[Rfam]
RNA sequence: AUAGAUAUCGAUGUUGUUAUUUUUGCAUUUCAUUUUGUAUGUUUUUCCUCUACAGCUCUCUUUUAUUGGAGAAAAAAAGUGGAUUAUGUUCUUUUCAAUCAAAGGGAGUUGUAGGGGAAAAAUAUAGAAAAUACAGUGU
Dot-bracket structure: ............................................(((((((((((((((((((.(((.(((((..................)))))))).)))))))))))))))))))....................
MIR2119 microRNA precursor family: a 139-nucleotide RNA sequence from Vigna radiata. The match comes from Rfam's covariance-model search (108 bits).